[Rfam]
RNA: MIR2655 microRNA precursor family
Organism: Medicago truncatula
RNA sequence: CCUUUAAAUAUUUAAAGUUUUAAUUUGGUCCCAUAAAGUAUUUUUGAGAUUAGUUUUGGUCCAUUAACUUAUUUUUUGGUCCCUUAAAUCUAAUACAUUCAUCCCAACAUUAAGGACCUAAGUGGUUGACGGAGGAAGAGUUAAGGGACCAAAACGAAACUUUUAAUAGUUAAGGGACCAAAAGAAAACCCUAAUAUAAGUUAUGGGACCGAAACGAAACUUUUAAUAGUUAAGGAA
Numbered sequence: 001c002c003u004u005u006a007a008a009u010a011u012u013u014a015a016a017g018u019u020u021u022a023a024u025u026u027g028g029u030c031c032c033a034u035a036a037a038g039u040a041u042u043u044u045u046g047a048g049a050u051u052a053g054u055u056u057u058g059g060u061c062c063a064u065u066a067a068c069u070u071a072u073u074u075u076u077u078g079g080u081c082c083c084u085u086a087a088a089u090c091u092a093a094u095a096c097a098u099u100c101a102u103c104c105c106a107a108c109a110u111u112a113a114g115g116a117c118c119u120a121a122g123u124g125g126u127u128g129a130c131g132g133a134g135g136a137a138g139a140g141u142u143a144a145g146g147g148a149c150c151a152a153a154a155c156g157a158a159a160c161u162u163u164u165a166a167u168a169g170u171u172a173a174g175g176g177a178c179c180a181a182a183a184g185a186a187a188a189c190c191c192u193a194a195u196a197u198a199a200g201u202u203a204u205g206g207g208a209c210c211g212a213a214a215c216g217a218a219a220c221u222u223u224u225a226a227u228a229g230u231u232a233a234g235g236a237a
Base pairs, nucleotide, nucleotide: 002235003234004233005232006231007230024213025212027210028209029208031206032205033204034203035202036201039198040197041196043194046191